[Rfam]
RNA sequence: AUCUAGCCAAAAUCUUCCCUUGAGAGUAACAACUUUCGGGUUGACAUCCCUACUCGAGGAGGGGUUUUAGUCGGUAGGCGCUUCGGCGAAUCCGACACUACCCCUUUUCAAGGGGUGUCUUUUGAAGAUUUCCCCUCCUCGAGAAUA
Numbered sequence: 001a002u003c004u005a006g007c008c009a010a011a012a013u014c015u016u017c018c019c020u021u022g023a024g025a026g027u028a029a030c031a032a033c034u035u036u037c038g039g040g041u042u043g044a045c046a047u048c049c050c051u052a053c054u055c056g057a058g059g060a061g062g063g064g065u066u067u068u069a070g071u072c073g074g075u076a077g078g079c080g081c082u083u084c085g086g087c088g089a090a091u092c093c094g095a096c097a098c099u100a101c102c103c104c105u106u107u108u109c110a111a112g113g114g115g116u117g118u119c120u121u122u123u124g125a126a127g128a129u130u131u132c133c134c135c136u137c138c139u140c141g142a143g144a145a146u147a
Stems, first nucleotide, its partner, number of pairs: 001027001002025003035145003055141005061134003070096005079088003098117001100116007
This 147-nucleotide RNA from Agrilus planipennis belongs to the Rfam family "R2 RNA element".
This family represents the 3' UTR region of the R2 retrotransposable element.
The organism belongs to Agrilus, within Eukaryota.
Rfam classes the family as a cis-regulatory element.